[Rfam]
RNA sequence: CUGCAAGCCUCCAGCGUGCCUGGGCCUGUGGUGACCCAGUGCAUUCCUAUAGUGCUUGCUAGAACAAUUUGGAACGGUUUGAGGCCUUGCUCUGCUCCACCUGGAACAAGGUUAUAGAAAUUUCAGACAGUC
Numbered sequence: 001c002u003g004c005a006a007g008c009c010u011c012c013a014g015c016g017u018g019c020c021u022g023g024g025c026c027u028g029u030g031g032u033g034a035c036c037c038a039g040u041g042c043a044u045u046c047c048u049a050u051a052g053u054g055c056u057u058g059c060u061a062g063a064a065c066a067a068u069u070u071g072g073a074a075c076g077g078u079u080u081g082a083g084g085c086c087u088u089g090c091u092c093u094g095c096u097c098c099a100c101c102u103g104g105a106a107c108a109a110g111g112u113u114a115u116a117g118a119a120a121u122u123u124c125a126g127a128c129a130g131u132c
Base pairs, nucleotide, nucleotide: 003059004058005057006056007055008054017043018042019041022037023036024035026033070125071124072123073122074121085111086110087109088108089107092104093103094102

The record is a 132-nucleotide RNA sequence from Erinaceus europaeus, which matches "Small nucleolar RNA SNORA9" in Rfam. Its Rfam clan is "SNORA9 clan". Rfam's curators write: ACA9 is a member of the H/ACA class of snoRNA that guide the sites of modification of uridines to pseudouridines. It is annotated as an H/ACA-box small nucleolar RNA.